[Rfam]
RNA sequence: UUAUUUUUUUAGGUUUUGUUUUUUUCCCUCUUCAUAAGAAAAUCAAAACCUAAAGAAAAUG
Numbered sequence: 001u002u003a004u005u006u007u008u009u010u011a012g013g014u015u016u017u018g019u020u021u022u023u024u025u026c027c028c029u030c031u032u033c034a035u036a037a038g039a040a041a042a043u044c045a046a047a048a049c050c051u052a053a054a055g056a057a058a059a060u061g
Base pairs, nucleotide, nucleotide: 004058005057006056007055008054009053010052011051012050013049014048015047016046017045018044020042021041022040023039024038
RNA: mir-737 microRNA precursor family